Shown here is a 137-nucleotide RNA sequence from Nitrosomonas cryotolerans, a member of the family "Bacterial antisense RNA HPnc0260". The match comes from Rfam's covariance-model search (60 bits). A reference for the family is Sharma et al. (2010), "The primary transcriptome of the major human pathogen Helicobacter pylori", Nature. The source organism's lineage runs through Bacteria, Nitrosomonadales, Nitrosomonadaceae, Nitrosomonas and Nitrosomonas cryotolerans.
[Rfam]
RNA sequence: AUUUAUACAGAUUACACACGUAUUUUUUUAUCGACAGAAUCAGAUCCUUAUUUAAAACAAGGCCGAUCUAAAAGACACUCCAAAUUUCCUGAGAAAUUUGGUAGGCGCGAUUGGACUCGAACCAACGACCCCCACCA
Numbered sequence: 001a002u003u004u005a006u007a008c009a010g011a012u013u014a015c016a017c018a019c020g021u022a023u024u025u026u027u028u029u030a031u032c033g034a035c036a037g038a039a040u041c042a043g044a045u046c047c048u049u050a051u052u053u054a055a056a057a058c059a060a061g062g063c064c065g066a067u068c069u070a071a072a073a074g075a076c077a078c079u080c081c082a083a084a085u086u087u088c089c090u091g092a093g094a095a096a097u098u099u100g101g102u103a104g105g106c107g108c109g110a111u112u113g114g115a116c117u118c119g120a121a122c123c124a125a126c127g128a129c130c131c132c133c134a135c136c137a
Stems, first nucleotide, its partner, number of pairs: 013039001015037001019033002051073003099134003104129001108127002111125004
Dot-bracket structure: ............(.(...((...........))...).)...........(((.................))).........................(((..(...((.((((.......)))))).)..)))...